[Rfam]
RNA: Mason-Pfizer monkey virus packaging signal
RNA sequence: UGGCGCCACGUGGGGCGAAGAGUUCGAGGGAUCCUGUGAGGGACGUCGUCAGAAGCGGCCGAACCAGAACUCAACAAGUCCAGAGAGGAGACGACGCGGGAGCCUGCUGCGGUCUCGCCCUCUUGGUGAGUGGACACGAUAUCAUGGGUCAGGAAUCAGUCAGCAAAAUGUUUAUUGAAGGUCUGGGCAAAGCAUUAAAGGCGCGAGGAGUAAAGGUUAAAGUAAAAGAUUUGUGUAAAUAUUUUGAUUAUAUUAAAGAACAUUUGCCCGU
Numbered sequence: 001u002g003g004c005g006c007c008a009c010g011u012g013g014g015g016c017g018a019a020g021a022g023u024u025c026g027a028g029g030g031a032u033c034c035u036g037u038g039a040g041g042g043a044c045g046u047c048g049u050c051a052g053a054a055g056c057g058g059c060c061g062a063a064c065c066a067g068a069a070c071u072c073a074a075c076a077a078g079u080c081c082a083g084a085g086a087g088g089a090g091a092c093g094a095c096g097c098g099g100g101a102g103c104c105u106g107c108u109g110c111g112g113u114c115u116c117g118c119c120c121u122c123u124u125g126g127u128g129a130g131u132g133g134a135c136a137c138g139a140u141a142u143c144a145u146g147g148g149u150c151a152g153g154a155a156u157c158a159g160u161c162a163g164c165a166a167a168a169u170g171u172u173u174a175u176u177g178a179a180g181g182u183c184u185g186g187g188c189a190a191a192g193c194a195u196u197a198a199a200g201g202c203g204c205g206a207g208g209a210g211u212a213a214a215g216g217u218u219a220a221a222g223u224a225a226a227a228g229a230u231u232u233g234u235g236u237a238a239a240u241a242u243u244u245u246g247a248u249u250a251u252a253u254u255a256a257a258g259a260a261c262a263u264u265u266g267c268c269c270g271u
Base pairs, nucleotide, nucleotide: 006030007029012025013024014023035045036044037043084127087123088122095111096110097109098108099107133150134149135148137147139145140144156197158195159193160192204246205245206244207243208242210240211239214232215231216230217229218228255271258268261266